[Rfam]
RNA sequence: GUCUUCUCUUAAAGCACCCUGCUAAAACUGCAGGAGCCAGACCUCUGGUUUAGCUCAUGUGGCCGUGUAAGCAUGGGUACACCAGGGAAGGAAAUGAAAGGCACAGUAUCAAAAAUGAGACUGGGAGGGACCUCUUUCAUAAUGUCCAAUGUCCUUGGUCUCACGAUCCUGUGUUACAUCC
Numbered sequence: 001g002u003c004u005u006c007u008c009u010u011a012a013a014g015c016a017c018c019c020u021g022c023u024a025a026a027a028c029u030g031c032a033g034g035a036g037c038c039a040g041a042c043c044u045c046u047g048g049u050u051u052a053g054c055u056c057a058u059g060u061g062g063c064c065g066u067g068u069a070a071g072c073a074u075g076g077g078u079a080c081a082c083c084a085g086g087g088a089a090g091g092a093a094a095u096g097a098a099a100g101g102c103a104c105a106g107u108a109u110c111a112a113a114a115a116u117g118a119g120a121c122u123g124g125g126a127g128g129g130a131c132c133u134c135u136u137u138c139a140u141a142a143u144g145u146c147c148a149a150u151g152u153c154c155u156u157g158g159u160c161u162c163a164c165g166a167u168c169c170u171g172u173g174u175u176a177c178a179u180c181c
Stems, first nucleotide, its partner, number of pairs: 017077002020073004027066002030063001034056001036054002039051005100175007108167001123152001125150001128147003